About this RNA: Shown here is a 72-nucleotide RNA sequence, a member of the family "RAGATH-16 RNA".
[Rfam]
RNA sequence: CCCGGACAAAUUCCGGGCGGCGGUAGUACGCAAGAAUUAAGCUUGCGGAUCGGCUAGUGAAUACUACUACAG
Numbered sequence: 001c002c003c004g005g006a007c008a009a010a011u012u013c014c015g016g017g018c019g020g021c022g023g024u025a026g027u028a029c030g031c032a033a034g035a036a037u038u039a040a041g042c043u044u045g046c047g048g049a050u051c052g053g054c055u056a057g058u059g060a061a062u063a064c065u066a067c068u069a070c071a072g
Stems, first nucleotide, its partner, number of pairs: 001017006023070004029047006